[Rfam]
RNA: HNH endonuclease-associated RNA and ORF (HEARO) RNA
Organism: Trichormus azollae
RNA sequence: GUCAGAAAGCCUACUCCUGAAGGCGUGGGCUUGAAAAGCCCUAAUCUGACCAGACUAAGUACCUUGUUGGGUACUACGUUAGAGGUAAGAGUUCAAGACCUACCAAGGGAUGUGAAGCUAGUCCUUUGCUCUAGAACCGAACAGUUAAACAUCUAAGGGUUAAGGAAGUGCUGUUUGGAUAGUUACCGACCUCUAACAUUAUCAAAGCUAACUUUAC
Numbered sequence: 001g002u003c004a005g006a007a008a009g010c011c012u013a014c015u016c017c018u019g020a021a022g023g024c025g026u027g028g029g030c031u032u033g034a035a036a037a038g039c040c041c042u043a044a045u046c047u048g049a050c051c052a053g054a055c056u057a058a059g060u061a062c063c064u065u066g067u068u069g070g071g072u073a074c075u076a077c078g079u080u081a082g083a084g085g086u087a088a089g090a091g092u093u094c095a096a097g098a099c100c101u102a103c104c105a106a107g108g109g110a111u112g113u114g115a116a117g118c119u120a121g122u123c124c125u126u127u128g129c130u131c132u133a134g135a136a137c138c139g140a141a142c143a144g145u146u147a148a149a150c151a152u153c154u155a156a157g158g159g160u161u162a163a164g165g166a167a168g169u170g171c172u173g174u175u176u177g178g179a180u181a182g183u184u185a186c187c188g189a190c191c192u193c194u195a196a197c198a199u200u201a202u203c204a205a206a207g208c209u210a211a212c213u214u215u216a217c
Stems, first nucleotide, its partner, number of pairs: 001050006010029002013026002016023002031038002053203002057199001058075005078197009094134001104128008112213001116209004137178009149169002152166003155160001